Notes:
Fluoride riboswitch aptamer (crcB RNA motif): a 72-nucleotide RNA from Methylobacterium sp. BTF04. The source organism's lineage runs through Bacteria, Pseudomonadati, Hyphomicrobiales, Methylobacteriaceae and Methylobacterium.
RNA sequence: ACGUGGGAUGGGGAUGAAGCUCCCCGAUAACUGCCGGCCCCCUAUGGGUCGGACGAUAGCUUCUACCGAGCG
Numbered sequence: 001a002c003g004u005g006g007g008a009u010g011g012g013g014a015u016g017a018a019g020c021u022c023c024c025c026g027a028u029a030a031c032u033g034c035c036g037g038c039c040c041c042c043u044a045u046g047g048g049u050c051g052g053a054c055g056a057u058a059g060c061u062u063c064u065a066c067c068g069a070g071c072g
Base pairs, nucleotide, nucleotide: 010025011024012023013022016063017062018061019060020059021058034052035051036050037049038048039047040046